RNA sequence: UGGUCAAGGGAGCAGGGCUGCGACCUCCGGGCUGAGCUCAGCUCCCUCCGCUCGGCCUGGAGCUCGCAGCCCCGCCCCCUGACCA
Number, nucleotide and partner (000 for none) at each position: 001u000002g000003g083004u082005c081006a000007a080008g079009g078010g077011a000012g075013c074014a000015g072016g071017g070018c069019u000020g067021c066022g065023a064024c000025c062026u061027c060028c059029g058030g057031g056032c000033u054034g053035a052036g051037c050038u000039c000040a000041g000042c000043u000044c000045c000046c000047u000048c000049c000050g037051c036052u035053c034054g033055g000056c031057c030058u029059g028060g027061a026062g025063c000064u023065c022066g021067c020068a000069g018070c017071c016072c015073c000074g013075c012076c000077c010078c009079c008080u007081g005082a004083c003084c000085a000
Rfam assigns this 85-nucleotide RNA sequence from Chelonoidis abingdonii to the family "mir-1343 microRNA precursor family". A search with the family's covariance model found it, with a score of 54 bits. The base pairs follow the family's consensus structure, which was predicted with RNAalifold. The organism belongs to Chelonoidis nigra species complex, within Eukaryota. Rfam links the family to the GO terms RISC complex and miRNA-mediated post-transcriptional gene silencing.